[Rfam]
RNA: SAM/SAH riboswitch aptamer
Organism: Yoonia litorea
RNA sequence: CUGCUGUCACAACGGCUUCCUGACGUGGCAGCGAAUUUCUAUCGGAGCA
Numbered sequence: 001c002u003g004c005u006g007u008c009a010c011a012a013c014g015g016c017u018u019c020c021u022g023a024c025g026u027g028g029c030a031g032c033g034a035a036u037u038u039c040u041a042u043c044g045g046a047g048c049a
Base pairs, nucleotide, nucleotide: 004031005030006029007028008027009026010025013022014021015048016047017046019045020044